Shown here is a 185-nucleotide RNA sequence from Caenorhabditis auriculariae, a member of the family "Small nucleolar RNA U3". On this family, see Speckmann et al., Mol Cell Biol 1999: "Nuclear retention elements of U3 small nucleolar RNA". Rfam classes the family as a C/D-box small nucleolar RNA. Lineage of the source: Eukaryota > Metazoa > Ecdysozoa > Peloderinae > Caenorhabditis. Small nucleolar RNAs (snoRNAs) are involved in the processing and modification of rRNA in the nucleolus. There are two main classes of snoRNAs: the box C/D class, and the box H/ACA class. U3 snoRNA is a member of the box C/D class. Indeed, the box C/D element is a subset of the six short sequence elements found in all U3 snoRNAs, namely boxes A, A', B, C, C', and D. The U3 snoRNA secondary structure is characterised by a small 5' domain (with boxes A and A'), and a larger 3' domain (with boxes B, C, C', and D), the two domains being linked by a single-stranded hinge. Boxes B and C form the B/C motif, which appears to be exclusive to U3 snoRNAs, and boxes C' and D form the C'/D motif. The latter is functionally similar to the C/D motifs found in other snoRNAs. The 5' domain and the hinge region act as a pre-rRNA-binding domain. The 3' domain has conserved protein-binding sites. Both the box B/C and box C'/D motifs are sufficient for nuclear retention of U3 snoRNA. The box C'/D motif is also necessary for nucleolar localisation, stability and hyper-methylation of U3 snoRNA. Both box B/C and C'/D motifs are involved in specific protein interactions and are necessary for the rRNA processing functions of U3 snoRNA. Rfam links the family to the GO terms RNA processing and nucleolus.
RNA sequence: GAGACCAUACUAUACAGAAUCAUUUCUGCAGUAUGUAUCUCGCAAUCCCCAUCAAAAUGGCACACACGCCAACUGCGAUGAAAGGGAGACGGGCGGGCCGCGAGCGUGAAGCACCGUAUUCACGGUUGAUGACCGCGUCGGAACCCAUUUUUGGAGUCCAACUGUGGCCUGCUCUUCUGAGCAGU
Number, nucleotide and partner (000 for none) at each position: 001g041002a040003g039004a038005c000006c035007a034008u033009a032010c031011u030012a000013u000014a000015c028016a027017g026018a025019a024020u000021c000022a000023u000024u019025u018026c017027u016028g015029c000030a011031g010032u009033a008034u007035g006036u000037a000038u004039c003040u002041c001042g000043c000044a000045a000046u000047c000048c000049c060050c059051a058052u000053c000054a000055a000056a000057a000058u051059g050060g049061c000062a000063c000064a000065c000066a000067c000068g000069c000070c000071a000072a185073c184074u183075g182076c181077g000078a000079u000080g000081a000082a000083a000084g000085g000086g000087a000088g000089a000090c000091g174092g173093g172094c171095g170096g169097g168098c167099c166100g165101c164102g000103a000104g136105c135106g134107u000108g000109a000110a000111g000112c000113a000114c125115c124116g123117u122118a000119u000120u000121c000122a117123c116124g115125g114126u000127u000128g000129a000130u000131g000132a000133c000134c106135g105136c104137g162138u161139c000140g000141g159142a000143a157144c156145c000146c154147a000148u000149u000150u000151u000152u000153g000154g146155a000156g144157u143158c000159c141160a000161a138162c137163u000164g101165u100166g099167g098168c097169c096170u095171g094172c093173u092174c091175u000176u000177c000178u000179g000180a000181g076182c075183a074184g073185u072